[Rfam]
RNA sequence: CGCUCAGAUAGAGGCGCGGCGUUCAUCAGUACCGCUCCGGCAAGGCCAGGCAGCCGCCGGACGGGGAAGGGUCCGCCGCCGAAGUGCCGGGACGAUGCCUGUCCUUCUGGUGCUGGGCCGUCAGGGAAUACCUGCCGGACUGUCACAAACCUUUGUGAAGCGCUAUCAAUGGC
Numbered sequence: 001c002g003c004u005c006a007g008a009u010a011g012a013g014g015c016g017c018g019g020c021g022u023u024c025a026u027c028a029g030u031a032c033c034g035c036u037c038c039g040g041c042a043a044g045g046c047c048a049g050g051c052a053g054c055c056g057c058c059g060g061a062c063g064g065g066g067a068a069g070g071g072u073c074c075g076c077c078g079c080c081g082a083a084g085u086g087c088c089g090g091g092a093c094g095a096u097g098c099c100u101g102u103c104c105u106u107c108u109g110g111u112g113c114u115g116g117g118c119c120g121u122c123a124g125g126g127a128a129u130a131c132c133u134g135c136c137g138g139a140c141u142g143u144c145a146c147a148a149a150c151c152u153u154u155g156u157g158a159a160g161c162g163c164u165a166u167c168a169a170u171g172g173c
Base pairs, nucleotide, nucleotide: 007167008166009165010164011163016079017078018077019076020075021074024071032064033063034062036061037060038059039058083114084113085112086111087110088109089108090107091106092105094103115141116140118138119137120136122134123133124132125131143158144157145156146155147154148153
Lysine riboswitch aptamer: a 173-nucleotide RNA from Dysosmobacter welbionis. The match comes from Rfam's covariance-model search (94 bits). The source organism's lineage runs through Bacteria, Bacillota, Clostridia, Eubacteriales and Dysosmobacter. Riboswitches are metabolite binding domains within certain messenger RNAs that serve as precision sensors for their corresponding targets.